Group I catalytic intron: a 347-nucleotide RNA from Desulfoscipio gibsoniae.
Its family is annotated with Group I intron splicing in the Gene Ontology.

[Rfam]
RNA sequence: CGACGUUGAUUAUGCCGAGGCAGCUUAAGCCAAGGCACAGUCGUCCUGACUGGUAACGGUCAGGAGUAUCACCGGGUGAAUUGCUGGAAAACCCUUUAGAGCCCUUCAUACCACAACGCAGCCGGAAACGGCAAACGUGAUGGUUUAAAAAAUGAAAGGAUUGGGCAAUCAGCAGCCGAGCCCCUGGACUGAAAGGUUGGGGAAGGUUCAACGACUAGGGCAUACCACCUAAGCCAUAAGGUAUGGUGAUGAAGCCCGUAGAGCACCGAAUGGUGUUCGAAGUGCCCGGCCCUUAACAGGUAAAGCUGAGGGUGAAGAUAUAGUCUGGUCAACAGGGAAACCUGUUG
Numbered sequence: 001c002g003a004c005g006u007u008g009a010u011u012a013u014g015c016c017g018a019g020g021c022a023g024c025u026u027a028a029g030c031c032a033a034g035g036c037a038c039a040g041u042c043g044u045c046c047u048g049a050c051u052g053g054u055a056a057c058g059g060u061c062a063g064g065a066g067u068a069u070c071a072c073c074g075g076g077u078g079a080a081u082u083g084c085u086g087g088a089a090a091a092c093c094c095u096u097u098a099g100a101g102c103c104c105u106u107c108a109u110a111c112c113a114c115a116a117c118g119c120a121g122c123c124g125g126a127a128a129c130g131g132c133a134a135a136c137g138u139g140a141u142g143g144u145u146u147a148a149a150a151a152a153u154g155a156a157a158g159g160a161u162u163g164g165g166c167a168a169u170c171a172g173c174a175g176c177c178g179a180g181c182c183c184c185u186g187g188a189c190u191g192a193a194a195g196g197u198u199g200g201g202g203a204a205g206g207u208u209c210a211a212c213g214a215c216u217a218g219g220g221c222a223u224a225c226c227a228c229c230u231a232a233g234c235c236a237u238a239a240g241g242u243a244u245g246g247u248g249a250u251g252a253a254g255c256c257c258g259u260a261g262a263g264c265a266c267c268g269a270a271u272g273g274u275g276u277u278c279g280a281a282g283u284g285c286c287c288g289g290c291c292c293u294u295a296a297c298a299g300g301u302a303a304a305g306c307u308g309a310g311g312g313u314g315a316a317g318a319u320a321u322a323g324u325c326u327g328g329u330c331a332a333c334a335g336g337g338a339a340a341c342c343u344g345u346u347g
Base pairs, nucleotide, nucleotide: 002036004034006032008030010028011027012026040045073288074287075286077284078283082174083173084172085171086170087169092165093164094163175207176206181201182200183199211326213325214324215323216322217321290312291311292310293309294308295307297305332345333344334343335342336341